The family of this 118-nucleotide sequence from Hucho hucho is "Small nucleolar RNA SNORA26". The snoRNA HBI-6 belong to the H/ACA family of snoRNAs, guiding the pseudouridylation of position U4522 if the 28S rRNA. HBI-6 is the human orthologue of mouse MBI-6 snoRNA. NCBI's taxonomy places the organism under Eukaryota, Gnathostomata, Teleostomi, Clupeocephala, Hucho.
[Rfam]
RNA sequence: UCGCCCAUUUAAGACUUGAAAUGUCCUAAAUGAUGAACAUAGGGGGGUAAGGCAGUUCUCUCAUAAACCUGUAGUGAAGGCCAAAUCCUCUCUGUGGAUCCUGUCGGGAGAAAUAAAC
Numbered sequence: 001u002c003g004c005c006c007a008u009u010u011a012a013g014a015c016u017u018g019a020a021a022u023g024u025c026c027u028a029a030a031u032g033a034u035g036a037a038c039a040u041a042g043g044g045g046g047g048u049a050a051g052g053c054a055g056u057u058c059u060c061u062c063a064u065a066a067a068c069c070u071g072u073a074g075u076g077a078a079g080g081c082c083a084a085a086u087c088c089u090c091u092c093u094g095u096g097g098a099u100c101c102u103g104u105c106g107g108g109a110g111a112a113a114u115a116a117a118c
Stems, first nucleotide, its partner, number of pairs: 003048004008043003016036001017033001056112001058110005069097006076090002080087001
Background:
Clan: SNORA27 clan. Gene Ontology terms of the family: RNA processing and nucleolus.